[Rfam]
RNA sequence: AUGUACCCCGCGUGCACUGCGGUUGUGAGCGCGCCGUCCGCGCCCAGCUGACAGCUGCUCGCCACGUUGUGUUAGCC
Numbered sequence: 001a002u003g004u005a006c007c008c009c010g011c012g013u014g015c016a017c018u019g020c021g022g023u024u025g026u027g028a029g030c031g032c033g034c035c036g037u038c039c040g041c042g043c044c045c046a047g048c049u050g051a052c053a054g055c056u057g058c059u060c061g062c063c064a065c066g067u068u069g070u071g072u073u074a075g076c077c
Base pairs, nucleotide, nucleotide: 002016003015004014005013006012020036021035022034023033048075049074050073051072052071053070
RNA: Xanthomonas sRNA sX9
Organism: Xanthomonas oryzae